[Rfam]
RNA sequence: CAAGCGGGCUGGACAGCCGCGCGGGCGGGGCGAAAGGCCCGUCUGUGAGGAAAGUCCGGGCUCCACAGGGCAGGGAUAACGGGUAACACCCGCCGGGGGCGACCCUAGGAAAAGUGCAACAGAAAUAGACUACCGCUCCGCCAUGGGGCGGCAAAGGUGGAAAGGUGAGGUAAGAGCUCACCCGAUGGCGUGUGAAAGCGCCCAUCGCUGUAAACUCUAUCCGGAGCAACGCCGUGGAGGGACACAUAGGCCGGCCCGGCCGUCCCGGGGAGGCGGCUUGAGCGCGUUGGCAACAGCGCGUCGAGAUAGAUGGCUGUCUUAAAAGACAGAACCCGGCUUACAGGCCCGCUUGUACC
Dot-bracket structure: ((((((((((((((((((.(((((((((..........)))))))))....[[[.[[[[[((((...[[[[..(((((.((((.....)))).(((((....)))).)((...(((((...........((.((((((((...))))))))...)).......((((((.......)))))).(..(((((......)))))...)..)))..)))))))))))))...((((.....(((((.....((((.]]]]))))))))).....))))......((((((((....))))))))..........))))))).............]]]]]]]].).))))))))))....
Numbered sequence: 001c002a003a004g005c006g007g008g009c010u011g012g013a014c015a016g017c018c019g020c021g022c023g024g025g026c027g028g029g030g031c032g033a034a035a036g037g038c039c040c041g042u043c044u045g046u047g048a049g050g051a052a053a054g055u056c057c058g059g060g061c062u063c064c065a066c067a068g069g070g071c072a073g074g075g076a077u078a079a080c081g082g083g084u085a086a087c088a089c090c091c092g093c094c095g096g097g098g099g100c101g102a103c104c105c106u107a108g109g110a111a112a113a114g115u116g117c118a119a120c121a122g123a124a125a126u127a128g129a130c131u132a133c134c135g136c137u138c139c140g141c142c143a144u145g146g147g148g149c150g151g152c153a154a155a156g157g158u159g160g161a162a163a164g165g166u167g168a169g170g171u172a173a174g175a176g177c178u179c180a181c182c183c184g185a186u187g188g189c190g191u192g193u194g195a196a197a198g199c200g201c202c203c204a205u206c207g208c209u210g211u212a213a214a215c216u217c218u219a220u221c222c223g224g225a226g227c228a229a230c231g232c233c234g235u236g237g238a239g240g241g242a243c244a245c246a247u248a249g250g251c252c253g254g255c256c257c258g259g260c261c262g263u264c265c266c267g268g269g270g271a272g273g274c275g276g277c278u279u280g281a282g283c284g285c286g287u288u289g290g291c292a293a294c295a296g297c298g299c300g301u302c303g304a305g306a307u308a309g310a311u312g313g314c315u316g317u318c319u320u321a322a323a324a325g326a327c328a329g330a331a332c333c334c335g336g337c338u339u340a341c342a343g344g345c346c347c348g349c350u351u352g353u354a355c356c
Stems, first nucleotide, its partner, number of pairs: 001352010011341001012318007020047009052339003056336005061226004068257004074222005080092004094108001095106004109217002114215002116211003130156002133151008164182006184206001187202005230275004239266005249261004282301008